[Rfam]
This 79-nucleotide RNA from Paenibacillus endophyticus belongs to the Rfam family "ZMP/ZTP riboswitch aptamer (pfl RNA motif)".
The base pairs follow the family's consensus structure, which is taken from published work.
The match comes from Rfam's covariance-model search (57 bits).
The source organism's lineage runs through Bacteria, Bacillati, Bacillota, Bacilli and Paenibacillus.

RNA sequence: AAAGCUGUGCGUGACUGGCGGAGCAUGGGGAACCAUGAGGAAGCGCAUAGAUAAUCGGCCGUACGCCUGGGCAAAGGUA
Numbered sequence: 001a002a003a004g005c006u007g008u009g010c011g012u013g014a015c016u017g018g019c020g021g022a023g024c025a026u027g028g029g030g031a032a033c034c035a036u037g038a039g040g041a042a043g044c045g046c047a048u049a050g051a052u053a054a055u056c057g058g059c060c061g062u063a064c065g066c067c068u069g070g071g072c073a074a075a076g077g078u079a
Stems, first nucleotide, its partner, number of pairs: 003052001005050008015040002017067004025036004058072003
Dot-bracket structure: ..(.((((((((..(([[[[....((((....))))..))..)))))))).).....(((...]]]]..))).......